About this RNA
Rfam assigns this 194-nucleotide RNA sequence from Saccharata proteae to the family "U2 spliceosomal RNA".
[Rfam]
RNA sequence: CCAGCUCUCUCUGCCUCCUGGCUUUGAUCAAGUGUAGUAUCUGUUCAUCUCAGCUUAAUCUCUGAGAGGUCACUACGGUGAUCGUCAAGAUUAUCCUAGUUUUUGGGAAACGGGAAACGGCCGCUGCACUUGUGUAUGUCGCUAUCCCACUGUAUCGCUGGUAUUGCACUCCUUCCAGCAGAUGCGAAUUCUUU
Numbered sequence: 001c002c003a004g005c006u007c008u009c010u011c012u013g014c015c016u017c018c019u020g021g022c023u024u025u026g027a028u029c030a031a032g033u034g035u036a037g038u039a040u041c042u043g044u045u046c047a048u049c050u051c052a053g054c055u056u057a058a059u060c061u062c063u064g065a066g067a068g069g070u071c072a073c074u075a076c077g078g079u080g081a082u083c084g085u086c087a088a089g090a091u092u093a094u095c096c097u098a099g100u101u102u103u104u105g106g107g108a109a110a111c112g113g114g115a116a117a118c119g120g121c122c123g124c125u126g127c128a129c130u131u132g133u134g135u136a137u138g139u140c141g142c143u144a145u146c147c148c149a150c151u152g153u154a155u156c157g158c159u160g161g162u163a164u165u166g167c168a169c170u171c172c173u174u175c176c177a178g179c180a181g182a183u184g185c186g187a188a189u190u191c192u193u194u
Stems, first nucleotide, its partner, number of pairs: 008027002013022003048067006068083006112147003116143001118141002125136004151186005157179005
Source information: NCBI's taxonomy places the organism under Eukaryota, Dikarya, Dothideomycetes, Saccharata, Saccharata proteae. The family's consensus secondary structure is taken from published work. Gene Ontology terms of the family: mRNA branch site recognition, U2 snRNP and pre-mRNA branch point binding.